[Rfam]
RNA: c-di-GMP-I riboswitch aptamer
Organism: Garciella nitratireducens
RNA sequence: UUUCAGAAAUGGCAAACUUGUUGAAAAGCAAGGACGCAAAACUUCAGAUCUAAGGUGUGUAAUGCACUAAGAUGGCUGAGUUGCCUCA
Numbered sequence: 001u002u003u004c005a006g007a008a009a010u011g012g013c014a015a016a017c018u019u020g021u022u023g024a025a026a027a028g029c030a031a032g033g034a035c036g037c038a039a040a041a042c043u044u045c046a047g048a049u050c051u052a053a054g055g056u057g058u059g060u061a062a063u064g065c066a067c068u069a070a071g072a073u074g075g076c077u078g079a080g081u082u083g084c085c086u087c088a
Stems, first nucleotide, its partner, number of pairs: 012037002017032006040082004045078003048073003055067004